[Rfam]
RNA sequence: UAAGCAGAAAUUGUGUGUAUCGGAAUUGUGCUUAAUCCAAUGCACUUGAUACCGAAAGAGUUCUCUGCAACAUGGAUUUGGAAAAGAUGGGCAGUUGUGUUUCAUUAUUGUUGACAUCUCAACAAUCAUCUUUUCCACAUUA
Number, nucleotide and partner (000 for none) at each position: 001u000002a000003a000004g068005c067006a066007g065008a064009a000010a062011u000012u000013g000014u000015g045016u044017g043018u042019a041020u040021c000022g000023g000024a000025a000026u000027u000028g000029u000030g000031c000032u000033u000034a000035a000036u000037c000038c000039a000040a020041u019042g018043c017044a016045c015046u000047u000048g000049a000050u000051a000052c000053c000054g000055a000056a000057a000058g000059a000060g000061u000062u010063c000064u008065c007066u006067g005068c004069a000070a000071c000072a000073u000074g000075g000076a000077u000078u000079u000080g136081g135082a134083a133084a132085a131086g130087a129088u128089g127090g126091g000092c000093a000094g123095u122096u121097g120098u000099g000100u000101u000102u000103c000104a000105u000106u000107a000108u000109u000110g000111u000112u000113g000114a000115c000116a000117u000118c000119u000120c097121a096122a095123c094124a000125a000126u090127c089128a088129u087130c086131u085132u084133u083134u082135c081136c080137a000138c000139a000140u000141u000142a000

The record is a 142-nucleotide RNA from Kingdonia uniflora, which matches "small nucleolar RNA snoR135" in Rfam. The literature on the family includes a 2009 paper in Nucleic Acids Res by Chen and Wu, "Mining small RNA sequencing data: a new approach to identify small nucleolar RNAs in Arabidopsis". The family's consensus secondary structure was predicted with RNAalifold. Rfam classes the family as an H/ACA-box small nucleolar RNA.